[Rfam]
RNA sequence: UGCUCCGGCGAUUCGGGCUGUCUUCCAAAGGAACGAGAAGAGAGAAAGAACCCUCACCAAACCCCACCCCUUCCCGCCCCGGUGGGCCUUCACCCUCAGGAGUGAAAACCACCGAAACAGCUGGUUGAGGGACGGGUUGUCGGAUCUAUCCUCAGCGCAAUUGGCAUAUGCCUGCAGACAUGAGUCAGCCCCCGCCGGGAGUGGAGUCCCGUAGGCGGGGGCCUGACCACCGAGGAAGAUAGGGCUUCCUG
Dot-bracket structure: ......((.(.....(((.(.....................................................).)))...........((((.(....).))))..............(((((...........................)))))...............................((((.(((.((((......))))....))).)))).....).))..(((((......)))))..
Numbered sequence: 001u002g003c004u005c006c007g008g009c010g011a012u013u014c015g016g017g018c019u020g021u022c023u024u025c026c027a028a029a030g031g032a033a034c035g036a037g038a039a040g041a042g043a044g045a046a047a048g049a050a051c052c053c054u055c056a057c058c059a060a061a062c063c064c065c066a067c068c069c070c071u072u073c074c075c076g077c078c079c080c081g082g083u084g085g086g087c088c089u090u091c092a093c094c095c096u097c098a099g100g101a102g103u104g105a106a107a108a109c110c111a112c113c114g115a116a117a118c119a120g121c122u123g124g125u126u127g128a129g130g131g132a133c134g135g136g137u138u139g140u141c142g143g144a145u146c147u148a149u150c151c152u153c154a155g156c157g158c159a160a161u162u163g164g165c166a167u168a169u170g171c172c173u174g175c176a177g178a179c180a181u182g183a184g185u186c187a188g189c190c191c192c193c194g195c196c197g198g199g200a201g202u203g204g205a206g207u208c209c210c211g212u213a214g215g216c217g218g219g220g221g222c223c224u225g226a227c228c229a230c231c232g233a234g235g236a237a238g239a240u241a242g243g244g245c246u247u248c249c250u251g
Stems, first nucleotide, its partner, number of pairs: 007231002010228001016078003020074001090105004095100001120156005188222004193217003197210004234249005

Streptomyces sRNA 4677: a 251-nucleotide RNA. It scores 148 bits against the family's covariance model. The pairing is the family consensus, mapped onto this sequence. The family's RNA type in Rfam is small RNA. From the family's description: Located in the intergenic region between anti-sigma factor SCO4677 gene and a putative regulatory protein gene SCO4676. scr4677 expression requires the SCO4677 activity and scr4677 sRNA itself seem to affect the levels of the SCO4676-associated transcripts.